[Rfam]
RNA sequence: UGCUUCAUACGAAGGUAUGAAGGAAGAGCAUUGUUGUCAAGCUUUCCGUCAGAAGAUCCACCAGGAUAUCCUGA
Numbered sequence: 001u002g003c004u005u006c007a008u009a010c011g012a013a014g015g016u017a018u019g020a021a022g023g024a025a026g027a028g029c030a031u032u033g034u035u036g037u038c039a040a041g042c043u044u045u046c047c048g049u050c051a052g053a054a055g056a057u058c059c060a061c062c063a064g065g066a067u068a069u070c071c072u073g074a
Stems, first nucleotide, its partner, number of pairs: 003022008053069001056067004